RNA: SAM riboswitch aptamer (S box leader)
Organism: Clostridium manihotivorum
RNA sequence: GUCUUAUUAAGAGUGGUGGAGGGACUGGCCCUGUGAAGCCCGGCAACCAGUAUGUUGCAUACAUGGUGCUAAAUCCUGCAGCAAUGCUGAAAGAUAAGAA
Numbered sequence: 001g002u003c004u005u006a007u008u009a010a011g012a013g014u015g016g017u018g019g020a021g022g023g024a025c026u027g028g029c030c031c032u033g034u035g036a037a038g039c040c041c042g043g044c045a046a047c048c049a050g051u052a053u054g055u056u057g058c059a060u061a062c063a064u065g066g067u068g069c070u071a072a073a074u075c076c077u078g079c080a081g082c083a084a085u086g087c088u089g090a091a092a093g094a095u096a097a098g099a100a
Stems, first nucleotide, its partner, number of pairs: 002099007013041001015040003021031003025078001027076002042070004047066002050062003074092001079089004